[Rfam]
Ribosomal protein L10 leader: a 128-nucleotide RNA sequence from Clostridium sp. 7_2_43FAA.
The base pairs follow the family's consensus structure, which was predicted with CMfinder.

RNA sequence: UUAAAGAGAAUACUGAUUCCAAAGACAGUAGGUGCCGAAAGGUUUAAAUAAUUGCCUACCGAGGAAUACCAAGGUAAGUAAUUAUUUGGUCUUCCUAUGUCUAUGGGAAGGCCUUUCUUAAUAUAAAU
Number, nucleotide and partner (000 for none) at each position: 001u000002u000003a000004a000005a000006g000007a000008g000009a000010a000011u000012a000013c000014u000015g000016a000017u000018u000019c000020c000021a000022a000023a000024g000025a000026c000027a000028g059029u058030a057031g056032g055033u054034g043035c042036c041037g000038a000039a000040a000041g036042g035043u034044u000045u000046a000047a000048a000049u000050a000051a000052u000053u000054g033055c032056c031057u030058a029059c028060c000061g000062a000063g000064g000065a000066a000067u000068a000069c000070c000071a000072a000073g000074g000075u000076a000077a000078g000079u000080a000081a000082u000083u000084a000085u000086u000087u000088g113089g112090u111091c110092u109093u108094c107095c106096u105097a104098u000099g000100u000101c000102u000103a000104u097105g096106g095107g094108a093109a092110g091111g090112c089113c088114u000115u000116u000117c000118u000119u000120a000121a000122u000123a000124u000125a000126a000127a000128u000
Notes:
Rfam describes the family as follows. This family is a putative r-protein leader autoregulatory structure found in B. subtilis and other low-GC Gram-positive bacteria. It is located in the 5' untranslated regions of mRNAs encoding ribosomal proteins L10 and L12 (rplJ-rplL). A Rho-independent transcription terminator structure that is probably involved in regulation is included at the 3' end. The family's RNA type in Rfam is cis-regulatory leader. Rfam links the family to the GO term regulation of gene expression. It scores 72 bits against the family's covariance model.